[Rfam]
RNA sequence: UUGAAUGUGAAUUGAUUUAUGUUUGGAUACCUUAAAGCAAAAGUGAUUCUUAUAAAUUCAUGUUGUUUGGAUAA
Numbered sequence: 001u002u003g004a005a006u007g008u009g010a011a012u013u014g015a016u017u018u019a020u021g022u023u024u025g026g027a028u029a030c031c032u033u034a035a036a037g038c039a040a041a042a043g044u045g046a047u048u049c050u051u052a053u054a055a056a057u058u059c060a061u062g063u064u065g066u067u068u069g070g071a072u073a074a
Stems, first nucleotide, its partner, number of pairs: 011061002014058005021053002025049004030045001032043002
The record is a 74-nucleotide RNA from Medicago truncatula, which matches "MIR5272 microRNA precursor family" in Rfam. Gene Ontology terms of the family: miRNA-mediated post-transcriptional gene silencing and RISC complex.